[Rfam]
RNA sequence: GAAGCUGGCUAGGCAGUCGCUGUAUGGUUUUCCAUGCAGAGGAAAGUCCGGGCUCCACAGAGCAGGAUGCCGGCUAACGGCCGGACGCCGCGAGGCGAUGGAAAGUGGCACAGAAAACAUACCGCCGAUGGCCCGCAAGGGAUCAGGUAAGGUUGAAAUGGCGAGGUAAGAGCUCACCGCAUUGCUGGCAACAGCAAUGGCAGGUUAAACCCCAUCCGGAGCAAGACCAAAUAGGGGGGCAUUGGCGCGGCUCGCGUUGCCCCCGGGUAGGUUGCACGAGCGCUGGAGCAAUUCAGCGCCUAGAGGAAUGACUGUCCACGACAGAACCCGGCUUAUCGGCCAGCUUCACCU
Numbered sequence: 001g002a003a004g005c006u007g008g009c010u011a012g013g014c015a016g017u018c019g020c021u022g023u024a025u026g027g028u029u030u031u032c033c034a035u036g037c038a039g040a041g042g043a044a045a046g047u048c049c050g051g052g053c054u055c056c057a058c059a060g061a062g063c064a065g066g067a068u069g070c071c072g073g074c075u076a077a078c079g080g081c082c083g084g085a086c087g088c089c090g091c092g093a094g095g096c097g098a099u100g101g102a103a104a105g106u107g108g109c110a111c112a113g114a115a116a117a118c119a120u121a122c123c124g125c126c127g128a129u130g131g132c133c134c135g136c137a138a139g140g141g142a143u144c145a146g147g148u149a150a151g152g153u154u155g156a157a158a159u160g161g162c163g164a165g166g167u168a169a170g171a172g173c174u175c176a177c178c179g180c181a182u183u184g185c186u187g188g189c190a191a192c193a194g195c196a197a198u199g200g201c202a203g204g205u206u207a208a209a210c211c212c213c214a215u216c217c218g219g220a221g222c223a224a225g226a227c228c229a230a231a232u233a234g235g236g237g238g239g240c241a242u243u244g245g246c247g248c249g250g251c252u253c254g255c256g257u258u259g260c261c262c263c264c265g266g267g268u269a270g271g272u273u274g275c276a277c278g279a280g281c282g283c284u285g286g287a288g289c290a291a292u293u294c295a296g297c298g299c300c301u302a303g304a305g306g307a308a309u310g311a312c313u314g315u316c317c318a319c320g321a322c323a324g325a326a327c328c329c330g331g332c333u334u335a336u337c338g339g340c341c342a343g344c345u346u347c348a349c350c351u
Stems, first nucleotide, its partner, number of pairs: 001347010011336001012316007020039008044334003048331005053221004060253004065217005070084005085099001086097004100212002105210002107206003122152002124148003129145003132141003160178002163175003179201001180199008225273004235264006244258005280299008
Bacterial RNase P class A: a 351-nucleotide RNA sequence from Sulfurimicrobium lacus. NCBI's taxonomy places the organism under Bacteria, Pseudomonadati, Betaproteobacteria, Sulfuricellaceae, Sulfurimicrobium. By type it is a ribozyme. Pairs were carried over by alignment from the consensus structure, which is taken from published work. Rfam's curators write: Ribonuclease P (RNase P) is a ubiquitous endoribonuclease, found in archaea, bacteria and eukarya as well as chloroplasts and mitochondria. Its best characterised activity is the generation of mature 5'-ends of tRNAs by cleaving the 5'-leader elements of precursor-tRNAs. Cellular RNase Ps are ribonucleoproteins. RNA from bacterial RNase Ps retains its catalytic activity in the absence of the protein subunit, i.e. it is a ribozyme.